[Rfam]
RNA sequence: UUCCUGUGAUGAGUUUGCCAUGCUAAUACUGAUAUGCCAGACUGACAAUGUCUUUCUGGGCAUAAAUGAGUUCAGUUUAACUUCUCACACUCGCAGUGUGAUCUGAGGAAA
Numbered sequence: 001u002u003c004c005u006g007u008g009a010u011g012a013g014u015u016u017g018c019c020a021u022g023c024u025a026a027u028a029c030u031g032a033u034a035u036g037c038c039a040g041a042c043u044g045a046c047a048a049u050g051u052c053u054u055u056c057u058g059g060g061c062a063u064a065a066a067u068g069a070g071u072u073c074a075g076u077u078u079a080a081c082u083u084c085u086c087a088c089a090c091u092c093g094c095a096g097u098g099u100g101a102u103c104u105g106a107g108g109a110a111a
Stems, first nucleotide, its partner, number of pairs: 001110004044052003